Overview:
Rfam assigns this 60-nucleotide RNA sequence from Sphingomonas sp. EC-HK361 to the family "Fluoride riboswitch aptamer (crcB RNA motif)". Taxonomically the source falls in Sphingomonas (Bacteria, Alphaproteobacteria, Sphingomonadales, Sphingomonadaceae).
RNA sequence: UCGCUGGAUGGGGAUGGAGUCCCCCAUAACCGCCGACAGGCUGAUGACCCCUACUGCGUC
Numbered sequence: 001u002c003g004c005u006g007g008a009u010g011g012g013g014a015u016g017g018a019g020u021c022c023c024c025c026a027u028a029a030c031c032g033c034c035g036a037c038a039g040g041c042u043g044a045u046g047a048c049c050c051c052u053a054c055u056g057c058g059u060c
Stems, first nucleotide, its partner, number of pairs: 010025004016051002019048003032041003